[Rfam]
RNA sequence: CGAGUAAGUCAGACAAUCGCUGCUAAUGUUUAAGCAUUAGGAGAGGAAAGUCCGAGCUUCAUAGGGCAGGGUGCUGGUUAAUGGCCAGUGGAGGCGACUCUAAGGAAAGUGCAACAGAAAUAUACCGCCUAGUUUUUAGGUAAGGAUGGAAAGGUGAGGUAAGAGCUCACCAGCAUAUAGGUGACUAUAUGGCUAUGUAAACCCCACUUGAAGCAAGACCGAAUAGAGGGAUAAAUGGAGUUGCCCGCUCCGUCCCUGGGUGUGUCGCUUGAGCUUAUCGGCAACGGUAGGCCUAGAUAGAUGAUUGUCAAAUACAGAACUCGGCUUAUAGAUUUAUCUCGAAUG
Number, nucleotide and partner (000 for none) at each position: 001c341002g340003a339004g338005u336006a335007a334008g333009u332010c331011a329012g309013a308014c307015a306016a305017u304018c303019g000020c043021u042022g000023c040024u039025a038026a037027u036028g035029u000030u000031u000032a000033a000034g000035c028036a027037u026038u025039a024040g023041g000042a021043g020044a000045g000046g000047a000048a327049a326050g325051u000052c324053c323054g322055a321056g320057c213058u212059u211060c210061a000062u000063a000064g246065g245066g244067c243068a000069g209070g208071g207072u206073g205074c088075u087076g086077g085078u084079u000080a000081a000082u000083g000084g078085c077086c076087a075088g074089u103090g101091g100092a099093g098094g000095c000096g000097a000098c093099u092100c091101u090102a000103a089104g204105g203106a000107a000108a000109g202110u201111g198112c197113a196114a000115c000116a000117g000118a000119a000120a000121u000122a000123u000124a000125c145126c144127g141128c140129c139130u138131a137132g136133u000134u000135u000136u132137u131138a130139g129140g128141u127142a000143a000144g126145g125146a000147u000148g000149g000150a000151a000152a000153g171154g170155u169156g168157a167158g166159g000160u000161a000162a000163g000164a000165g000166c158167u157168c156169a155170c154171c153172a000173g193174c191175a190176u189177a188178u187179a186180g185181g000182u000183g000184a000185c180186u179187a178188u177189a176190u175191g174192g000193c173194u000195a000196u113197g112198u111199a000200a000201a110202c109203c105204c104205c073206a072207c071208u070209u069210g060211a059212a058213g057214c000215a000216a000217g266218a265219c264220c000221g000222a000223a000224u000225a000226g000227a257228g256229g255230g254231a253232u252233a000234a000235a000236u000237g251238g250239a249240g248241u247242u000243g067244c066245c065246c064247g241248c240249u239250c238251c237252g232253u231254c230255c229256c228257u227258g000259g000260g000261u000262g000263u000264g219265u218266c217267g000268c000269u000270u000271g000272a000273g292274c291275u290276u289277a288278u287279c286280g285281g000282c000283a000284a000285c280286g279287g278288u277289a276290g275291g274292c273293c000294u000295a000296g000297a000298u000299a000300g000301a000302u000303g018304a017305u016306u015307g014308u013309c012310a000311a000312a000313u000314a000315c000316a000317g000318a000319a000320c056321u055322c054323g053324g052325c050326u049327u048328a000329u011330a000331g010332a009333u008334u007335u006336a005337u000338c004339u003340c002341g001342a000343a000344u000345g000
RNA: Bacterial RNase P class A